The family of this 176-nucleotide RNA sequence from Sporolactobacillus shoreae is "Lysine riboswitch aptamer". Its family is annotated with lysine biosynthetic process in the Gene Ontology. The source organism's lineage runs through Bacteria, Bacillota, Bacilli, Caryophanales and Sporolactobacillus. About the family: Riboswitches are metabolite binding domains within certain messenger RNAs that serve as precision sensors for their corresponding targets.
RNA sequence: UGAAGUGAUAGAGGAGCAGUCUUCAUGAGUAGACCGCGCGAGAAGGAUGAGAUUCACUGACCGCGGCCGAAGGGGUAGUCUGCCGAAGCAGGGGGCGUUUCAUCACGUUUCCUGGCUGGAUCUGCAUUGAAUAGGUGCAGGGCUGUCACACGAAAGUGUGGAGAACUAUCCCAGCA
Numbered sequence: 001u002g003a004a005g006u007g008a009u010a011g012a013g014g015a016g017c018a019g020u021c022u023u024c025a026u027g028a029g030u031a032g033a034c035c036g037c038g039c040g041a042g043a044a045g046g047a048u049g050a051g052a053u054u055c056a057c058u059g060a061c062c063g064c065g066g067c068c069g070a071a072g073g074g075g076u077a078g079u080c081u082g083c084c085g086a087a088g089c090a091g092g093g094g095g096c097g098u099u100u101c102a103u104c105a106c107g108u109u110u111c112c113u114g115g116c117u118g119g120a121u122c123u124g125c126a127u128u129g130a131a132u133a134g135g136u137g138c139a140g141g142g143c144u145g146u147c148a149c150a151c152g153a154a155a156g157u158g159u160g161g162a163g164a165a166c167u168a169u170c171c172c173a174g175c176a
Stems, first nucleotide, its partner, number of pairs: 007170005016083004021078002024075001032068001034066005087117003090113008118144002121141008146161006